Overview: The family of this 53-nucleotide sequence is "Plastid-atpF group II-D1 intron". Rfam 15.1 lists 1,372 matches to the family in 227 species. Pairs were carried over by alignment from the consensus structure, which was predicted with LocARNA. Rfam describes the family as follows. Plastid atpF is a non-coding RNA (ncRNA) recognised in plastids. It has been reported in the intron group II-D1 region of ATP synthase (atpF) genes. Gene Ontology term of the family: Group II intron splicing.

RNA sequence: GGUAAUUUUUUCGAUAUAGAACACUCAUAUCGAGAAAAUGAUUUAAACCAUUU
Numbered sequence: 001g002g003u004a005a006u007u008u009u010u011u012c013g014a015u016a017u018a019g020a021a022c023a024c025u026c027a028u029a030u031c032g033a034g035a036a037a038a039u040g041a042u043u044u045a046a047a048c049c050a051u052u053u
Stems, first nucleotide, its partner, number of pairs: 011033007